[Rfam]
This 280-nucleotide sequence from Paenibacillus mucilaginosus belongs to the Rfam family "BsrG". Its family is annotated with autolysis and toxin activity in the Gene Ontology. The family's RNA type in Rfam is small RNA. The literature on the family includes a 2008 paper in Gene by Saito et al., "Novel small RNA-encoding genes in the intergenic regions of Bacillus subtilis". About the family: bsrE, bsrG and bsrH pair through intermolecular interactions with antisense sRNAs. They form type I toxin/antitoxin system that includes an mRNA encoding for a short, toxic peptide (bsrE, bsrG and bsrH) and an antitoxin that is comprised of an antisense RNA. bsrG encodes a 39-amino-acid toxin, and the 180 nucleotide antisense sRNA called SR4 acts as the antitoxin (they overlap by 123 nucleotides). SR4 interaction with the 3'UTR of bsrG RNA promotes bsrG degradation and inhibits its translation.

RNA sequence: GACAAUAGGGUGCGGCACUCAAGGGCGGCCCGGCUCACACUCGCUUUCCCUGAUGGCAGCCUCUGCCGGAAGGAGGUGAUGCCAUGGAAGUGAAGGAUGCGGUAUCCUUGAUGUUCAUGUUCGGCAUGUUCAUCCUGGCCCUGCUGUCCUAUUUGAAAAAAAAGUAGACCUCCCUUGAGCCUUGUCAGCCGAGAGGUCUACUUCUGGUUAUAGCCUUAUGUCGACCGCCCUUGAGGGCAAUCUAUUGUGAAGCCGGACUGCAGAUGCGGGAACAUCUGCG
Dot-bracket structure: (((((.(((.(.((((.((((((((..(.(....(((..(((..............................))).)))......((.((((......(((..........)))........(((............))).)))).))..................).)..)))))))).........(.(............).).............))))...(((......)))).))).))))....).....((((((((......))))))))